[Rfam]
RNA sequence: CUGCUAUCCGCUAACCGGGAAGCCCGUGUCGCGGAAGGUUUUCCUGCAUCGAUUACGAGUGAAGCGCUCGUCAAGGUGAAGCG
Numbered sequence: 001c002u003g004c005u006a007u008c009c010g011c012u013a014a015c016c017g018g019g020a021a022g023c024c025c026g027u028g029u030c031g032c033g034g035a036a037g038g039u040u041u042u043c044c045u046g047c048a049u050c051g052a053u054u055a056c057g058a059g060u061g062a063a064g065c066g067c068u069c070g071u072c073a074a075g076g077u078g079a080a081g082c083g
Stems, first nucleotide, its partner, number of pairs: 002083003007035005016026004037044002047078004055071007